[Rfam]
RNA sequence: ACACCGGGACGACCCGGCGCUGCCCGGAAGACGCGGGACGACCCG
Numbered sequence: 001a002c003a004c005c006g007g008g009a010c011g012a013c014c015c016g017g018c019g020c021u022g023c024c025c026g027g028a029a030g031a032c033g034c035g036g037g038a039c040g041a042c043c044c045g
Base pairs, nucleotide, nucleotide: 002019004017005016006015007014008013034045035044036043037042
RNA: Guanidine-II riboswitch aptamer (mini-ykkC)